A member of the RNA family "Clostridiales-1 RNA" from Oscillospiraceae bacterium Marseille-Q3528, 166 nucleotides long.

RNA sequence: GAAUUACAGUGUUUCAAAGUCUUCGGCCAUUUGUGCUCGCACAAAAAUGGACGUAAGACCUUGAAACGCGCCCCGGUAUGAGCAUAAAAGGUAAGUGAAACUUACCGAUAUGCGAAUAUCGGGCAGAAUUGCGGGAGUGCAACGCACGGAGCAAUUCGGGUAAUUC
Numbered sequence: 001g002a003a004u005u006a007c008a009g010u011g012u013u014u015c016a017a018a019g020u021c022u023u024c025g026g027c028c029a030u031u032u033g034u035g036c037u038c039g040c041a042c043a044a045a046a047a048u049g050g051a052c053g054u055a056a057g058a059c060c061u062u063g064a065a066a067c068g069c070g071c072c073c074c075g076g077u078a079u080g081a082g083c084a085u086a087a088a089a090g091g092u093a094a095g096u097g098a099a100a101c102u103u104a105c106c107g108a109u110a111u112g113c114g115a116a117u118a119u120c121g122g123g124c125a126g127a128a129u130u131g132c133g134g135g136a137g138u139g140c141a142a143c144g145c146a147c148g149g150a151g152c153a154a155u156u157c158g159g160g161u162a163a164u165u166c
Base pairs, nucleotide, nucleotide: 001166002165003164004163005162006161007160011067012066013065014064017061019059020058021057022056023055024053025052027050028049029048030047031046032043033042034041035040072123073122074121075120076119077118078117079116082113083112084111085110090106091105092104093103094102095101096100126157127156128155129154130153131152132151137147138146139145140144

Taxonomically the source falls in Oscillospiraceae (Bacteria, Bacillati, Clostridia, Eubacteriales).